[Rfam]
Notes: Rfam assigns this 92-nucleotide RNA sequence from Penicillium arizonense to the family "A. fumigatus snoRNA Afu_263". A search with the family's covariance model found it, with a score of 83 bits. The family is grouped with related families in Rfam's "SNORD77 clan". It is annotated as a C/D-box small nucleolar RNA. The literature on the family includes a 2008 paper in Nucleic Acids Res by Jochl et al., "Small ncRNA transcriptome analysis from Aspergillus fumigatus suggests a novel mechanism for regulation of protein synthesis". Gene Ontology terms of the family: RNA processing and nucleolus. Taxonomically the source falls in Penicillium (Eukaryota, Opisthokonta, Dikarya, Pezizomycotina).

RNA sequence: CUGGAUGAUGAACAACAAUAUCAAAAGCAUAGUUCACCUGAAAUCUUCGGAUUACUGAACGAAAACAUAUUCCAUCUUUCAUUUUUCUGAUC
Numbered sequence: 001c002u003g004g005a006u007g008a009u010g011a012a013c014a015a016c017a018a019u020a021u022c023a024a025a026a027g028c029a030u031a032g033u034u035c036a037c038c039u040g041a042a043a044u045c046u047u048c049g050g051a052u053u054a055c056u057g058a059a060c061g062a063a064a065a066c067a068u069a070u071u072c073c074a075u076c077u078u079u080c081a082u083u084u085u086u087c088u089g090a091u092c
Stems, first nucleotide, its partner, number of pairs: 006020002009017002032060005042053004